This 87-nucleotide RNA sequence from Triticum urartu belongs to the Rfam family "MIR1120/MIR1122 microRNA precursor family".
The organism belongs to Triticum, within Eukaryota.
A search with the family's covariance model found it, with a score of 89 bits.
Nucleotides: 087
Base pairs, nucleotide, nucleotide: 003085004084005083007081008080009079010078011077013075014074015073016072017071019069020068021067022066023065024064025063026062027061028060029059030058031057032056033055034054035053036052037051040048041047
Number, partner (000 for none) and nucleotide at each position: 001000a002000u003085a004084c005083u006000c007081c008080c009079u010078c011077c012000g013075u014074u015073c016072c017071a018000u019069g020068a021067u022066a023065u024064a025063a026062g027061a028060g029059c030058g031057u032056u033055u034054u035053u036052u037051a038000c039000c040048c041047u042000a043000g044000u045000g046000u047041a048040g049000u050000a051037u052036a053035g054034a055033a056032a057031a058030c059029g060028c061027u062026c063025u064024u065023a066022u067021a068020u069019u070000a071017u072016g073015g074014g075013a076000c077011g078010g079009a080008g081007g082000g083005a084004g085003u086000a087000g